[Rfam]
RNA sequence: GGCCAGGGAAAGACAAAAGAUAUAAACUAAAACAUAUAGUAUGGGCAAGCAGGGAGCUAGAACGAUUUGCAUUAAAUCCUGGCC
Numbered sequence: 001g002g003c004c005a006g007g008g009a010a011a012g013a014c015a016a017a018a019g020a021u022a023u024a025a026a027c028u029a030a031a032a033c034a035u036a037u038a039g040u041a042u043g044g045g046c047a048a049g050c051a052g053g054g055a056g057c058u059a060g061a062a063c064g065a066u067u068u069g070c071a072u073u074a075a076a077u078c079c080u081g082g083c084c
Stems, first nucleotide, its partner, number of pairs: 001084008